[Rfam]
RNA sequence: CAGAGAGGGGCGGUGAAACCGUUACCAUUACUGAGUUUAGUAAUGGUAAGGGUUCUCUUGCCUUCUCUCAA
Numbered sequence: 001c002a003g004a005g006a007g008g009g010g011c012g013g014u015g016a017a018a019c020c021g022u023u024a025c026c027a028u029u030a031c032u033g034a035g036u037u038u039a040g041u042a043a044u045g046g047u048a049a050g051g052g053u054u055c056u057c058u059u060g061c062c063u064u065c066u067c068u069c070a071a
Base pairs, nucleotide, nucleotide: 007064008063009062011060012059013058017054018053019052020051022049023048024047025046026045027044028043029042030041031040032039033038
The record is a 71-nucleotide RNA sequence from Cyprinus carpio, which matches "mir-451 microRNA precursor family" in Rfam. The family has 22 seed sequences and 658 matches in Rfam 15.1. The source organism's lineage runs through Eukaryota, Neopterygii, Cyprinoidei, Cyprinidae and Cyprinus carpio. A search with the family's covariance model found it, with a score of 76 bits.